Nucleotides: 119
Stems, first nucleotide, its partner, number of pairs: 002046003011040011023077004060114003082102002084099006
Number, partner (000 for none) and nucleotide at each position: 001000a002046g003045g004044c005000g006000u007000u008000g009000a010000a011040a012039u013038a014037u015036g016035g017034a018033a019032c020031g021030u022000g023077c024076c025075g026074g027000a028000a029000a030021g031020c032019g033018u034017u035016u036015c037014a038013u039012a040011u041000g042000g043000a044004g045003u046002c047000a048000g049000u050000a051000a052000g053000g054000g055000u056000c057000u058000a059000a060114g061113c062112a063000c064000u065000u066000a067000c068000c069000g070000c071000g072000a073000u074026u075025c076024g077023g078000c079000u080000u081000a082102c083101c084099u085098g086097c087096a088095u089094a090000u091000u092000a093000u094089u095088a096087u097086g098085c099084a100000a101083g102082g103000g104000a105000c106000a107000u108000a109000a110000a111000g112062u113061g114060c115000u116000u117000c118000a119000c